[Rfam]
RNA: Small nucleolar RNA ACA64
RNA sequence: GCUGGUUGAAAAUCAACUGCAGCUUCGCCCAUGGCCGCAGGUGAGAUUCAGUGCCCAGAGCCACCAGGGGCCUUAGCUCACUGCUCACUUGCCCACCGCCUUGGCGUGGGAGGUUGAAACCCAGGCCCUGAUAGGU
Dot-bracket structure: ....((((((..(((......(((........)))......)))..))))))..............(.(((((....(((.(...(((.................)))....).))).....))))).).......